[Rfam]
RNA sequence: UCGUACUGCCCUCCUUGGGCGUUUCCUCCCUAGACUUGGGCCGCUCCACAAGAGCGGCCCCUUUUUUUGCCCUCA
Numbered sequence: 001u002c003g004u005a006c007u008g009c010c011c012u013c014c015u016u017g018g019g020c021g022u023u024u025c026c027u028c029c030c031u032a033g034a035c036u037u038g039g040g041c042c043g044c045u046c047c048a049c050a051a052g053a054g055c056g057g058c059c060c061c062u063u064u065u066u067u068u069g070c071c072c073u074c075a
Base pairs, nucleotide, nucleotide: 008020009019010018011017038060039059040058041057042056043055044054045053046052
RNA: Makes More Granules Regulator RNA (mmgR)
Organism: Variibacter gotjawalensis